[Rfam]
RNA sequence: GCGGAUACGUCCGCAGGGAUGUGGCCCCAGAGGGCUGAACCACAAA
Numbered sequence: 001g002c003g004g005a006u007a008c009g010u011c012c013g014c015a016g017g018g019a020u021g022u023g024g025c026c027c028c029a030g031a032g033g034g035c036u037g038a039a040c041c042a043c044a045a046a
Stems, first nucleotide, its partner, number of pairs: 001014005016041002023036005

Rfam assigns this 46-nucleotide sequence to the family "eL15-Euryarchaeota ribosomal protein leader".
The sequence is in the family's curated seed alignment.